The record is a 129-nucleotide RNA sequence from bacterium HR12, which matches "FMN riboswitch aptamer (RFN element)" in Rfam.
RNA sequence: GCCUGUCUUCGGGGCGGGGUGCAAGUCCCCACCGGCGGUGACAGUCCGCGACCCCCCGCGAGCCACGUGGGGGUGGACCCGGUGGAACUCCGGGACCGACCGUGAGAGUCGGGAUGGGAGAGGACGGGC
Dot-bracket structure: ..((((((((......(((.......))).[[((((((.....[[))))...((.................))....(((((.......)))))]])).(((.....]]))).......))))))))..
Numbered sequence: 001g002c003c004u005g006u007c008u009u010c011g012g013g014g015c016g017g018g019g020u021g022c023a024a025g026u027c028c029c030c031a032c033c034g035g036c037g038g039u040g041a042c043a044g045u046c047c048g049c050g051a052c053c054c055c056c057c058g059c060g061a062g063c064c065a066c067g068u069g070g071g072g073g074u075g076g077a078c079c080c081g082g083u084g085g086a087a088c089u090c091c092g093g094g095a096c097c098g099a100c101c102g103u104g105a106g107a108g109u110c111g112g113g114a115u116g117g118g119a120g121a122g123g124a125c126g127g128g129c
Stems, first nucleotide, its partner, number of pairs: 003127008017029003031109002033098002035049004044096002053073002078094005100112003